[Rfam]
Nucleotides: 122
Base pairs, nucleotide, nucleotide: 005085006084007083008082009081010080011079012078015075016074017110018109019108020107059071060070061069062068100116101115102114103113
Number, partner (000 for none) and nucleotide at each position: 001000c002000a003000g004000c005085g006084u007083c008082g009081g010080c011079g012078u013000c014000a015075c016074u017110g018109g019108c020107g021000c022000a023000a024000a025000g026000g027000c028000a029000a030000g031000u032000c033000g034000u035000c036000u037000g038000c039000a040000c041000g042000a043000g044000a045000a046000a047000g048000c049000a050000a051000g052000c053000u054000u055000g056000c057000a058000c059071g060070g061069g062068g063000a064000a065000c066000a067000u068062c069061c070060c071059c072000g073000a074016g075015g076000g077000a078012g079011c080010g081009c082008c083007g084006a085005u086000a087000g088000u089000a090000u091000u092000u093000u094000u095000u096000g097000c098000c099000c100116u101115g102114c103113c104000g105000u106000c107020c108019g109018c110017c111000u112000g113103g114102g115101c116100a117000c118000a119000c120000g121000g122000g
A member of the RNA family "ZMP/ZTP riboswitch aptamer (pfl RNA motif)" from Armatimonas rosea, 122 nucleotides long. The source organism's lineage runs through Bacteria, Armatimonadota, Armatimonadia, Armatimonadaceae and Armatimonas.